RNA sequence: GACCGAAAAGGCAAACCCAUCGAAAGGUGGGGGCGCAAAGCUACAGACCUAACCCCCUGGCCCGGGUAAGGUGGCUGAGCUGCCGAAG
Dot-bracket structure: ..(.......((...((((((....))))))..[))..((((.((((((....................))).])))))))...)...
The family of this 88-nucleotide RNA sequence from a Dehalococcoidia bacterium is "c-di-GMP-I-GGC riboswitch aptamer". The family's consensus secondary structure is taken from published work. For this family Rfam cites "Bioinformatic analysis of riboswitch structures uncovers variant classes with altered ligand specificity" (Weinberg et al., Proc Natl Acad Sci U S A, 2017). It scores 68 bits against the family's covariance model.